[Rfam]
RNA sequence: CCAAAGGUGUUUUUUAACACCACACAAAAAACCAAUUUCUUUUCA
Numbered sequence: 001c002c003a004a005a006g007g008u009g010u011u012u013u014u015u016a017a018c019a020c021c022a023c024a025c026a027a028a029a030a031a032c033c034a035a036u037u038u039c040u041u042u043u044c045a
Base pairs, nucleotide, nucleotide: 006021007020008019009018010017011016
The record is a 45-nucleotide RNA from Dictyostelium discoideum, which matches "Histone 3' UTR stem-loop" in Rfam.
The base pairs follow the family's consensus structure, which is taken from published work.
For this family Rfam cites "Structure of histone mRNA stem-loop, human stem-loop binding protein, and 3'hExo ternary complex" (Tan et al., Science, 2013).
The sequence is in the family's curated seed alignment.
The mRNAs of metazoan histone genes lack a poly-A tail. 3' end processing occurs at a site between a highly conserved stem-loop (modelled by this family) and a purine rich region around 20 nts downstream (the histone downstream element, or HDE). The stem-loop is bound by a 31 kDa stem-loop binding protein (SLBP - also termed the histone hairpin binding protein, or HBP). Together with U7 snRNA binding of the HDE, SLBP binding nucleate s the formation of the processing complex. The histone 3' UTR stem-loop is also involved in nucleocytoplasmic transport of the mRNA, and in stability regulation and translation efficiency in the cytoplasm.
The organism belongs to Dictyostelium discoideum, within Eukaryota.
Gene Ontology term of the family: mRNA 3'-end processing by stem-loop binding and cleavage.